[Rfam]
RNA: MIR162_1 microRNA precursor family
RNA sequence: UGGGAAGAAACUGGAGGCAGCGGUUCAUCGAUCUCUUCCUGGCCAAUUUUUGUUUAACACGAAAAACAUGAACCGAUCGAUAAACCUCUGCAUCCAGCGCUUCCUUU
Numbered sequence: 001u002g003g004g005a006a007g008a009a010a011c012u013g014g015a016g017g018c019a020g021c022g023g024u025u026c027a028u029c030g031a032u033c034u035c036u037u038c039c040u041g042g043c044c045a046a047u048u049u050u051u052g053u054u055u056a057a058c059a060c061g062a063a064a065a066a067c068a069u070g071a072a073c074c075g076a077u078c079g080a081u082a083a084a085c086c087u088c089u090g091c092a093u094c095c096a097g098c099g100c101u102u103c104c105u106u107u
Stems, first nucleotide, its partner, number of pairs: 013095003018090003022086004027081007036072003